Rfam assigns this 145-nucleotide RNA from Beta vulgaris to the family "small nucleolar RNA snoR135".
A reference for the family is Chen and Wu (2009), "Mining small RNA sequencing data: a new approach to identify small nucleolar RNAs in Arabidopsis", Nucleic Acids Res.
Rfam 15.1 lists 837 matches to the family in 220 species.
Rfam classes the family as an H/ACA-box small nucleolar RNA.
[Rfam]
Nucleotides: 145
Stems, first nucleotide, its partner, number of pairs: 004073007015050001085138001087136008098126004
Number, partner (000 for none) and nucleotide at each position: 001000a002000u003000a004073g005072c006071a007070g008069g009068g010067a011000c012000u013000g014000u015050g016000u017000u018000g019000u020000c021000a022000c023000u024000u025000a026000u027000c028000a029000g030000u031000a032000u033000u034000a035000c036000g037000c038000a039000g040000u041000g042000a043000u044000c045000a046000u047000a048000u049000u050015c051000u052000c053000u054000a055000u056000g057000c058000u059000g060000a061000a062000a063000g064000a065000a066000u067010u068009c069008c070007c071006u072005g073004c074000a075000a076000u077000a078000u079000u080000a081000a082000u083000u084000g085138g086000a087136g088135a089134a090133g091132a092131u093130g094129g095000g096000c097000a098126g099125u100124u101123g102000a103000g104000a105000u106000u107000u108000c109000a110000u111000c112000u113000a114000u115000u116000g117000g118000u119000a120000u121000c122000u123101c124100a125099a126098c127000a128000a129094u130093c131092a132091u133090c134089u135088u136087u137000c138085c139000u140000a141000c142000a143000u144000u145000c